[Rfam]
RNA sequence: AUACCUUAUACUUAUGAGGAUGGAAAAUAACAAUUUGGGAUGAUGCCUGAAUCCUCACUGCUAAUUUGAGACAAAUUUUUGAGCAAGUAAAGGCUGCCCUUAAAGCGACCCCUUUACUUUGCAGGAUUCAUGGGAGUUGUGAUCUGCCUG
Dot-bracket structure: ...((.(............).)).........(((((((......))))))).((((.........)))).............((.((..(((.(((..((.(.(.(.((..(.......)..)).).).).))....))).))))).))

Rfam assigns this 150-nucleotide RNA sequence from Marmota monax to the family "U12 minor spliceosomal RNA". Rfam classes the family as a spliceosomal small nuclear RNA. For this family Rfam cites "Pre-mRNA splicing: the discovery of a new spliceosome doubles the challenge" (Tarn and Steitz, Trends Biochem Sci, 1997). The pairing is the family consensus, mapped onto this sequence.